[Rfam]
RNA sequence: CUCUUUUCCGUAUGCAAGUGUGUUCCUCUAUUUGACGCUAAAGGUUGGUGCUCCUUUUGAAACACCACAAAUGUUCUUGUUGCAUUUGGUAGUAUUCUUACCUUUAGAGUCAAGAGAAGAACACACUUCGCCACCGAAAAGGAC
Numbered sequence: 001c002u003c004u005u006u007u008c009c010g011u012a013u014g015c016a017a018g019u020g021u022g023u024u025c026c027u028c029u030a031u032u033u034g035a036c037g038c039u040a041a042a043g044g045u046u047g048g049u050g051c052u053c054c055u056u057u058u059g060a061a062a063c064a065c066c067a068c069a070a071a072u073g074u075u076c077u078u079g080u081u082g083c084a085u086u087u088g089g090u091a092g093u094a095u096u097c098u099u100a101c102c103u104u105u106a107g108a109g110u111c112a113a114g115a116g117a118a119g120a121a122c123a124c125a126c127u128u129c130g131c132c133a134c135c136g137a138a139a140a141g142g143a144c
Stems, first nucleotide, its partner, number of pairs: 002143006009136002016128010027117003031114006038107008047096005054089002058084002061081004066073002
Dot-bracket structure: .((((((.((.....((((((((((.(((.((((((.((((((((.(((((..((..((.((((.((....))....)))).))...))..)))))...)))))))).))))))))).))))))))))......)).)))))).
Rfam assigns this 144-nucleotide RNA sequence from Sorghum bicolor to the family "MIR6234 microRNA precursor family". Its family is annotated with RISC complex and miRNA-mediated post-transcriptional gene silencing in the Gene Ontology. Rfam 15.1 lists 141 matches to the family in 8 species. The family's consensus secondary structure was predicted with RNAalifold.